About this RNA: Shown here is a 141-nucleotide sequence from Parabacteroides chinchillae, a member of the family "Bacteroidete tryptophan peptide leader RNA". Its family is annotated with regulation of gene expression and S-adenosylmethionine metabolic process in the Gene Ontology. The family's RNA type in Rfam is cis-regulatory leader. Pairs were carried over by alignment from the consensus structure, which is taken from published work. Taxonomically the source falls in Parabacteroides (Bacteria, Pseudomonadati, Bacteroidota, Bacteroidia).
RNA sequence: UGCCGUAACAAGAGAACAAAAUGAAAACAUUCAUAGUAAAUACAUAUUGGUGGUGGCGCUCCGUACAACUCAAAAGUUCGUAAGGGACGAAGCCUAUAUGUAUAUACCUGAAUAGUACAAAAUACAAUAAAGAGGUCUGUC
Numbered sequence: 001u002g003c004c005g006u007a008a009c010a011a012g013a014g015a016a017c018a019a020a021a022u023g024a025a026a027a028c029a030u031u032c033a034u035a036g037u038a039a040a041u042a043c044a045u046a047u048u049g050g051u052g053g054u055g056g057c058g059c060u061c062c063g064u065a066c067a068a069c070u071c072a073a074a075a076g077u078u079c080g081u082a083a084g085g086g087a088c089g090a091a092g093c094c095u096a097u098a099u100g101u102a103u104a105u106a107c108c109u110g111a112a113u114a115g116u117a118c119a120a121a122a123u124a125c126a127a128u129a130a131a132g133a134g135g136u137c138u139g140u141c
Stems, first nucleotide, its partner, number of pairs: 036107003040103008049095002057089002060086003066080001068078001070076001